M-box riboswitch aptamer (ykoK leader): a 153-nucleotide sequence from Clostridiales bacterium CHKCI001. A search with the family's covariance model found it, with a score of 105 bits. The pairing is the family consensus, mapped onto this sequence. Rfam links the family to the GO terms response to magnesium ion and regulation of gene expression. NCBI's taxonomy places the organism under Bacteria, Bacillati, Bacillota, Clostridia, Eubacteriales.
RNA sequence: ACUAAAAUUUGGUAGGUGAGGCUACCGCAGGGAUAUGGGUUGCUGCCGCGAAGUAGUGGAGACACUAUAAGAAGGUUAGCAGGAAGUGUCGUUUAAGGCAUUUUCUAAUGCAAUUUCACGCCCUGUGAUGCUAAAGCUUGAACAAAUGUGAGG
Numbered sequence: 001a002c003u004a005a006a007a008u009u010u011g012g013u014a015g016g017u018g019a020g021g022c023u024a025c026c027g028c029a030g031g032g033a034u035a036u037g038g039g040u041u042g043c044u045g046c047c048g049c050g051a052a053g054u055a056g057u058g059g060a061g062a063c064a065c066u067a068u069a070a071g072a073a074g075g076u077u078a079g080c081a082g083g084a085a086g087u088g089u090c091g092u093u094u095a096a097g098g099c100a101u102u103u104u105c106u107a108a109u110g111c112a113a114u115u116u117c118a119c120g121c122c123c124u125g126u127g128a129u130g131c132u133a134a135a136g137c138u139u140g141a142a143c144a145a146a147u148g149u150g151a152g153g
Stems, first nucleotide, its partner, number of pairs: 005149001007147005013096001015138003020132003026127007039114005046074001049071001055066004082105004088099003